[Rfam]
RNA sequence: CUUUUGCCUGGUUCAAGUAAUCCAGGAUAGGUUGGUUCUCUGUAGUACGGCCUAUUCUUGAUUACUUGUGUCGGGAGGAAG
Numbered sequence: 001c002u003u004u005u006g007c008c009u010g011g012u013u014c015a016a017g018u019a020a021u022c023c024a025g026g027a028u029a030g031g032u033u034g035g036u037u038c039u040c041u042g043u044a045g046u047a048c049g050g051c052c053u054a055u056u057c058u059u060g061a062u063u064a065c066u067u068g069u070g071u072c073g074g075g076a077g078g079a080a081g
Stems, first nucleotide, its partner, number of pairs: 002080004007075006014068009024058010
Rfam assigns this 81-nucleotide sequence from Astyanax mexicanus to the family "mir-26 microRNA precursor family". On this family, see Lagos-Quintana et al., Curr Biol 2002: "Identification of tissue-specific microRNAs from mouse".